This 191-nucleotide sequence from Oryza brachyantha belongs to the Rfam family "MIR812 microRNA precursor family". It scores 132 bits against the family's covariance model. The source organism's lineage runs through Eukaryota, Liliopsida, Petrosaviidae, commelinids and Oryza. Rfam 15.1 lists 57,451 matches to the family in 24 species.
RNA sequence: AAUAACUCUAUUUUUCGUUUUUUCGUGUCGAACGUUUGACCAUUCAUCUUAUUGAAAUUUUCUUGCGAUUAAUAUUUUUAUUGUUACUAGAUGAUAAAAUAUGAGUAGUACUUUAUACGUGACUAUUUUUUAAACGUUUUUUACAAAUAUUUCAAAUAAGACGAAUGGUCAAACGUUGGACACGGAAAAAC
Numbered sequence: 001a002a003u004a005a006c007u008c009u010a011u012u013u014u015u016c017g018u019u020u021u022u023u024c025g026u027g028u029c030g031a032a033c034g035u036u037u038g039a040c041c042a043u044u045c046a047u048c049u050u051a052u053u054g055a056a057a058u059u060u061u062c063u064u065g066c067g068a069u070u071a072a073u074a075u076u077u078u079u080a081u082u083g084u085u086a087c088u089a090g091a092u093g094a095u096a097a098a099a100u101a102u103g104a105g106u107a108g109u110a111c112u113u114u115a116u117a118c119g120u121g122a123c124u125a126u127u128u129u130u131u132a133a134a135c136g137u138u139u140u141u142u143a144c145a146a147a148u149a150u151u152u153c154a155a156a157u158a159a160g161a162c163g164a165a166u167g168g169u170c171a172a173a174c175g176u177u178g179g180a181c182a183c184g185g186a187a188a189a190a191c
Stems, first nucleotide, its partner, number of pairs: 028180002031177003035173011047161006